[Rfam]
RNA: Metazoan signal recognition particle RNA
RNA sequence: GCCGGGCGUUGUGGCGUGCGCCUGUAAUCCAGUGACUUUAGGAGGCCGGGGUUGGUGGAUCGCAUGCGACCGGGAGCUCUGUGGCGUCGUUCUGCUCAUGACGAUCGGGUGUCCAGGCUAAGCUCGGCAUCGGCAUGGUAGGCCCAGCGGAGGUUGGGUACCAGACCAGGUUGACUAAGGAGGGGCGUACCGGCCCAGGGCGGGUAACGCAGCAGGCAAAAGCCCCCGUGUGGAGCAGUAAGCAGGAUUGCACUCGAGAAUGGGAGGCGGCUCACAGCCCGGACAAUACGGCGAGACCCAACUCUUU
Numbered sequence: 001g002c003c004g005g006g007c008g009u010u011g012u013g014g015c016g017u018g019c020g021c022c023u024g025u026a027a028u029c030c031a032g033u034g035a036c037u038u039u040a041g042g043a044g045g046c047c048g049g050g051g052u053u054g055g056u057g058g059a060u061c062g063c064a065u066g067c068g069a070c071c072g073g074g075a076g077c078u079c080u081g082u083g084g085c086g087u088c089g090u091u092c093u094g095c096u097c098a099u100g101a102c103g104a105u106c107g108g109g110u111g112u113c114c115a116g117g118c119u120a121a122g123c124u125c126g127g128c129a130u131c132g133g134c135a136u137g138g139u140a141g142g143c144c145c146a147g148c149g150g151a152g153g154u155u156g157g158g159u160a161c162c163a164g165a166c167c168a169g170g171u172u173g174a175c176u177a178a179g180g181a182g183g184g185g186c187g188u189a190c191c192g193g194c195c196c197a198g199g200g201c202g203g204g205u206a207a208c209g210c211a212g213c214a215g216g217c218a219a220a221a222g223c224c225c226c227c228g229u230g231u232g233g234a235g236c237a238g239u240a241a242g243c244a245g246g247a248u249u250g251c252a253c254u255c256g257a258g259a260a261u262g263g264g265a266g267g268c269g270g271c272u273c274a275c276a277g278c279c280c281g282g283a284c285a286a287u288a289c290g291g292c293g294a295g296a297c298c299c300a301a302c303u304c305u306u307u
Stems, first nucleotide, its partner, number of pairs: 001046003004023006028043003048305008060294004068284001070282005079277006088269002091267003095264005105257008113246002117243002119240002122236004127231004131173004136168004142162001143158006175179001182226005193217003200210003